[Rfam]
RNA sequence: UGAGCUGGCCGCAAGGCCCUGGUUCAUCUACUGGCGAGGUCUUCCUCG
Numbered sequence: 001u002g003a004g005c006u007g008g009c010c011g012c013a014a015g016g017c018c019c020u021g022g023u024u025c026a027u028c029u030a031c032u033g034g035c036g037a038g039g040u041c042u043u044c045c046u047c048g
Base pairs, nucleotide, nucleotide: 001026002025003024004023005022006021007018008017009016010015
RNA: DUF3800-XI RNA